[Rfam]
Nucleotides: 104
Stems, first nucleotide, its partner, number of pairs: 004096007023041001025040004043060006070081004
Number, partner (000 for none) and nucleotide at each position: 001000u002000a003000g004096a005095a006094u007093g008092g009091a010090g011000c012000u013000a014000c015000c016000u017000a018000c019000c020000a021000a022000a023041a024000g025040c026039c027038g028037g029000u030000a031000g032000g033000u034000a035000g036000c037028c038027c039026g040025g041023u042000c043060g044059u045058c046057c047056u048055a049000u050000a051000u052000a053000g054000a055048u056047a057046g058045g059044g060043u061000a062000a063000g064000u065000a066000a067000c068000c069000u070081g071080c072079c073078c074000c075000u076000c077000c078073g079072g080071g081070u082000u083000g084000u085000c086000c087000a088000u089000u090010c091009u092008u093007u094006g095005u096004u097000c098000a099000a100000u101000c102000a103000a104000u
Notes:
A member of the RNA family "azaaromatic riboswitch aptamer (yjdF RNA)" from Butyricicoccus sp. TM10-16AC, 104 nucleotides long. The organism belongs to Butyricicoccus, within Bacteria. The match comes from Rfam's covariance-model search (56 bits). Pairs were carried over by alignment from the consensus structure, which is taken from published work.